[Rfam]
RNA sequence: UCGGCACCCGAGGGGCGCCCGCGAGGGCUGAGACGGCGAGAGCCGAACCCUUUGAACCUGAUCCGGGUCAUGCCGGCGAAGGAACGGGGGCGCCAGACCGA
Numbered sequence: 001u002c003g004g005c006a007c008c009c010g011a012g013g014g015g016c017g018c019c020c021g022c023g024a025g026g027g028c029u030g031a032g033a034c035g036g037c038g039a040g041a042g043c044c045g046a047a048c049c050c051u052u053u054g055a056a057c058c059u060g061a062u063c064c065g066g067g068u069c070a071u072g073c074c075g076g077c078g079a080a081g082g083a084a085c086g087g088g089g090g091c092g093c094c095a096g097a098c099c100g101a
Stems, first nucleotide, its partner, number of pairs: 007088004011051004016045001017028004035044003057082003063076004
RNA: TPP riboswitch aptamer (THI element)
Organism: Methylopila turkensis